[Rfam]
Annotation:
A member of the RNA family "T-box leader" from Finegoldia magna, 238 nucleotides long. The family's consensus secondary structure is taken from published work. About the family: Uncharged tRNA acts as the effector for transcription antitermination of genes in the T-box leader family. T-boxes are found upstream of many aminoacyl-tRNA synthetase genes and some amino acid biosynthetic genes usually in Gram-positive bacteria. The anticodon of a specific tRNA base pairs to a specifier sequence within the T-box motif, and the NCCA acceptor tail of the tRNA base pairs to a conserved bulge in the T-box antiterminator hairpin. The organism belongs to Finegoldia magna, within Bacteria. It is annotated as a cis-regulatory leader. For this family Rfam cites "Interaction between the acceptor end of tRNA and the T box stimulates antitermination in the Bacillus subtilis tyrS gene: a new role for the discriminator base" (Grundy et al., J Bacteriol, 1994). Rfam links the family to the GO term tRNA binding. A search with the family's covariance model found it, with a score of 114 bits.
RNA sequence: AAAAUGACUAUGAUGAGAUGAGUAUGUAAUAUUUUUUUUAAAGAGAGUCUUAGUUUGCUGGAAUAAGAUACUAAAUUAUUACAGAAUAUGGUCUUUGAGUUUGAAAAGUUGAAUAGCUUAUGCUUUUAAAUUUUUCCGGGAGCAUCCGUUAUCAAAUGCUAGGCAUGAAAGUGCCAAACAAUGAGAGAAUAUUUUUUAUUCUAAAAUUAAGGUGGUAACGCGGAUUUUCGCCCUUAUA
Dot-bracket structure: ......((......((((......((((((.......(........((((((...........))))))).......))))))........))))...))...(((((((..................))))))).(((......))).....................................((((((.....))))))......((((.......((((....))))))))...